[Rfam]
RNA: 6S / SsrS RNA
Organism: Qipengyuania vulgaris
RNA sequence: GCGGGGCUGCCCGGCACGAGCCGCAUGAACAUCCCUGAGGCUAUAAGCAAUCCUAGGGAGCUGUCCCUACCGGAUUGGCGGGUUUGUCCUGGCAAUCUGGAUAUACGGCGCCCACCUGACGUAAAGGCGUCAGAGGAUUUUCCGGCAACGACCCAUGGCGGUCCCGUC
Numbered sequence: 001g002c003g004g005g006g007c008u009g010c011c012c013g014g015c016a017c018g019a020g021c022c023g024c025a026u027g028a029a030c031a032u033c034c035c036u037g038a039g040g041c042u043a044u045a046a047g048c049a050a051u052c053c054u055a056g057g058g059a060g061c062u063g064u065c066c067c068u069a070c071c072g073g074a075u076u077g078g079c080g081g082g083u084u085u086g087u088c089c090u091g092g093c094a095a096u097c098u099g100g101a102u103a104u105a106c107g108g109c110g111c112c113c114a115c116c117u118g119a120c121g122u123a124a125a126g127g128c129g130u131c132a133g134a135g136g137a138u139u140u141u142c143c144g145g146c147a148a149c150g151a152c153c154c155a156u157g158g159c160g161g162u163c164c165c166g167u168c
Base pairs, nucleotide, nucleotide: 002166003165004164005163006162007161008160009159010158011157013153014152017150018149032137033136034135035133036132037131038130040128041127056113057112058111060109061108062107063106064105070100071099072098073097074096079091080090081089082088